[Rfam]
RNA: Vault RNA
Organism: Cnephaeus nilssonii
RNA sequence: GGGCGGGCUUUCCUUCCUUAGCUCAGCGGUUCCUUCGAGCCCAGCUUCACUUGCCAACCAGUCUUGCUCGCAAGAUGGUUCGAGACCAGCGGGUUCCCUCCAGUCCUUUA
Numbered sequence: 001g002g003g004c005g006g007g008c009u010u011u012c013c014u015u016c017c018u019u020a021g022c023u024c025a026g027c028g029g030u031u032c033c034u035u036c037g038a039g040c041c042c043a044g045c046u047u048c049a050c051u052u053g054c055c056a057a058c059c060a061g062u063c064u065u066g067c068u069c070g071c072a073a074g075a076u077g078g079u080u081c082g083a084g085a086c087c088a089g090c091g092g093g094u095u096c097c098c099u100c101c102a103g104u105c106c107u108u109u110a
Base pairs, nucleotide, nucleotide: 002105003104004103006101007100021094022093023092024091026090027089029087034084035083036082037081038080